Background
U4atac minor spliceosomal RNA: a 123-nucleotide sequence from Microcebus murinus. Rfam's curators write: U4atac is an essential component of the minor U12-type spliceosome complex which is required for removal of the rarer class of eukaryotic introns (AT-AC, U12-type). Its family is annotated with spliceosomal tri-snRNP complex assembly, mRNA 5'-splice site recognition and U4atac snRNP in the Gene Ontology. Clan: U4 clan. The family's RNA type in Rfam is spliceosomal small nuclear RNA. For this family Rfam cites "Computational screen for spliceosomal RNA genes aids in defining the phylogenetic distribution of major and minor spliceosomal components" (Davila Lopez et al., Nucleic Acids Res, 2008).
RNA sequence: ACCAUCCUUUUCUUGGAGUUGCACCACUGUCCAAUGAGCACGUAGUGAAGGCAGUAUUGCUAAUGCUUACUCAACACGCCUGCAACUAGAACUUUGCUUUAUCUUGGUAUAAUUUUUGGAAAA
Dot-bracket structure: .....(.((.....)).)..(((..((((((......((.....))...))))))..)))....................((((..((((.(...).))))...)).))..............